[Rfam]
RNA: S4-Flavobacteria ribosomal protein leader
RNA sequence: AAUCAUCGAAGGACAAUGCCUUAAUUCAUGAUU
Number, nucleotide and partner (000 for none) at each position: 001a033002a032003u031004c030005a029006u028007c000008g027009a022010a021011g020012g019013a000014c000015a000016a000017u000018g000019c012020c011021u010022u009023a000024a000025u000026u000027c008028a006029u005030g004031a003032u002033u001